[Rfam]
RNA sequence: ACGUCGAUCCGGGCCCCUCUGGCAGCGAGCCAUCGCUGCGAUGUCGGAUCUUUCAC
Numbered sequence: 001a002c003g004u005c006g007a008u009c010c011g012g013g014c015c016c017c018u019c020u021g022g023c024a025g026c027g028a029g030c031c032a033u034c035g036c037u038g039c040g041a042u043g044u045c046g047g048a049u050c051u052u053u054c055a056c
Stems, first nucleotide, its partner, number of pairs: 006050007022039007
Dot-bracket structure: .....(((((((.........(((((((....)))))))....)))))))......
Record summary
The family of this 56-nucleotide RNA from Blastochloris tepida is "terC RNA". By type it is a cis-regulatory element. A search with the family's covariance model found it, with a score of 57 bits. The family has 129 seed sequences and 1,112 matches in Rfam 15.1.